[Rfam]
RNA sequence: UAGAUCGAUGAUGACUGCUGGUGGCGUAUGAGUCGUUGGCGAUGAAUACUUGUCUGCAACUCUGAGGUCCAA
Numbered sequence: 001u002a003g004a005u006c007g008a009u010g011a012u013g014a015c016u017g018c019u020g021g022u023g024g025c026g027u028a029u030g031a032g033u034c035g036u037u038g039g040c041g042a043u044g045a046a047u048a049c050u051u052g053u054c055u056g057c058a059a060c061u062c063u064g065a066g067g068u069c070c071a072a
Base pairs, nucleotide, nucleotide: 003069004068005067006066
Shown here is a 72-nucleotide RNA sequence from Vicugna pacos, a member of the family "Small nucleolar RNA SNORD113/SNORD114 family". It scores 78 bits against the family's covariance model. About the family: The imprinted human domain at 14q32 contains two clusters of tandemly repeated small nucleolar RNAs named 14q(I) and 14q(II) snoRNAs. These two clusters are named SNORD113 and SNORD114 respectively in the HGNC approved gene symbol nomenclature. The snoRNAs found in both clusters are clearly related and are represented here by a single family. The source organism's lineage runs through Eukaryota, Metazoa, Craniata, Mammalia and Vicugna.